This 101-nucleotide RNA sequence from Ogataea arabinofermentans belongs to the Rfam family "Small nucleolar RNA snR48". Clan: SNORD60 clan. For this family Rfam cites "A computational screen for methylation guide snoRNAs in yeast" (Lowe and Eddy, Science, 1999). The family's consensus secondary structure was predicted with ILM.
[Rfam]
RNA sequence: UUUUUAUGAUGAUUACCUAUGAUAUUUAAACUUUUCUUUCUGGCAUCUCUAAUGUUAGAGCUUUUCAGCUCGAUGAAUAUAAAAUUGACAACUAUCUGACA
Dot-bracket structure: ..........................................................((((....))))...............................
Rfam classes the family as a C/D-box small nucleolar RNA. Gene Ontology terms of the family: nucleolus and RNA processing.